[Rfam]
Rfam assigns this 182-nucleotide RNA from Atractosteus spatula to the family "U2 spliceosomal RNA". The family is grouped with related families in Rfam's "U2 clan". NCBI's taxonomy places the organism under Eukaryota, Deuterostomia, Craniata, Semionotiformes, Atractosteus. The family's consensus secondary structure is taken from published work. Rfam describes the family as follows. U2 is a small nuclear RNA (snRNA) component of the spliceosome (involved in pre-mRNA splicing). Complementary binding between U2 snRNA (in an area lying towards the 5' end but 3' to hairpin I) and the branchpoint sequence (BPS) of the intron results the bulging out of an unpaired adenosine, on the BPS, which initiates a nucleophilic attack at the intronic 5' splice site, thus starting the first of two transesterification reactions that mediate splicing.
RNA sequence: AUUUUGUCUUUGAUAAGACCAGAUUUUUUUUUUAUUUAUACAGUUUAAUAUCUGAUACGUCCCCCAUCGGGGGUCCACAUAUUAAACGGAUUUUUGGAACAGGGAGCUGGAUCAGGAGCUUGCUCCGUCCUCUCCACGCAUCGGCCCGGUAUUGCAGCGCCUCCGGGAAUGGUGCACUACCU
Numbered sequence: 001a002u003u004u005u006g007u008c009u010u011u012g013a014u015a016a017g018a019c020c021a022g023a024u025u026u027u028u029u030u031u032u033u034a035u036u037u038a039u040a041c042a043g044u045u046u047a048a049u050a051u052c053u054g055a056u057a058c059g060u061c062c063c064c065c066a067u068c069g070g071g072g073g074u075c076c077a078c079a080u081a082u083u084a085a086a087c088g089g090a091u092u093u094u095u096g097g098a099a100c101a102g103g104g105a106g107c108u109g110g111a112u113c114a115g116g117a118g119c120u121u122g123c124u125c126c127g128u129c130c131u132c133u134c135c136a137c138g139c140a141u142c143g144g145c146c147c148g149g150u151a152u153u154g155c156a157g158c159g160c161c162u163c164c165g166g167g168a169a170u171g172g173u174g175c176a177c178u179a180c181c182u
Base pairs, nucleotide, nucleotide: 002018003017004016006014007013008012037057038056039055041054042053043052059075061073062072063071064070065069103135104134105133106132109129110128115126116125117124118123138175139174140173141172142171143170145167146166147165148164149163